[Rfam]
RNA sequence: CUCUUAUCAAGAGCAGGUGGAGGGACUGGCCCUAUGAAACCCGGCAACCAUUUACCAUUUCGGUGAAAACGGUGCUAAUUCUUGCAGCUUUUAAAUAGCUGGCAGAUGAGAG
Numbered sequence: 001c002u003c004u005u006a007u008c009a010a011g012a013g014c015a016g017g018u019g020g021a022g023g024g025a026c027u028g029g030c031c032c033u034a035u036g037a038a039a040c041c042c043g044g045c046a047a048c049c050a051u052u053u054a055c056c057a058u059u060u061c062g063g064u065g066a067a068a069a070c071g072g073u074g075c076u077a078a079u080u081c082u083u084g085c086a087g088c089u090u091u092u093a094a095a096u097a098g099c100u101g102g103c104a105g106a107u108g109a110g111a112g
Stems, first nucleotide, its partner, number of pairs: 001112008013042001016041003022032003026084001028082002043076004048072002051067005080104001085101005